RNA: Small nucleolar RNA SNORA51
Organism: Castor canadensis
RNA sequence: GGCCUCCUGGUACUUACAACAAGCCAUGUUCUUAUACUGAUUGUAUAGAAAGAGGAGGGAAAGUAAACCUACUCCAUAUACAUCUCAGCCCAGGCCUUGUGCCUGGUCUGUGUUGUGAAUGGGGAGACAUGG
Numbered sequence: 001g002g003c004c005u006c007c008u009g010g011u012a013c014u015u016a017c018a019a020c021a022a023g024c025c026a027u028g029u030u031c032u033u034a035u036a037c038u039g040a041u042u043g044u045a046u047a048g049a050a051a052g053a054g055g056a057g058g059g060a061a062a063g064u065a066a067a068c069c070u071a072c073u074c075c076a077u078a079u080a081c082a083u084c085u086c087a088g089c090c091c092a093g094g095c096c097u098u099g100u101g102c103c104u105g106g107u108c109u110g111u112g113u114u115g116u117g118a119a120u121g122g123g124g125a126g127a128c129a130u131g132g
Base pairs, nucleotide, nucleotide: 003058004057005056006055007054008053020043021042022041027036028035029034072124073123074122075121076120077119086110087109088108090106091105092104093103094102095101